[Rfam]
Nucleotides: 094
Stems, first nucleotide, its partner, number of pairs: 002023003006019002051083004056078003
Number, partner (000 for none) and nucleotide at each position: 001000a002023c003022a004021u005000c006019g007018g008000u009000u010000g011000a012000u013000u014000c015000g016000u017000c018007c019006c020000g021004a022003u023002g024000c025000a026000g027000a028000a029000g030000c031000g032000u033000a034000u035000a036000c037000a038000g039000c040000a041000u042000a043000g044000u045000a046000c047000a048000g049000a050000a051083c052082g053081g054080a055000u056078u057077u058076a059000g060000c061000u062000u063000c064000a065000a066000a067000a068000a069000u070000c071000a072000g073000a074000a075000g076058u077057a078056a079000u080054u081053c082052c083051g084000a085000a086000u087000g088000g089000c090000g091000a092000a093000g094000c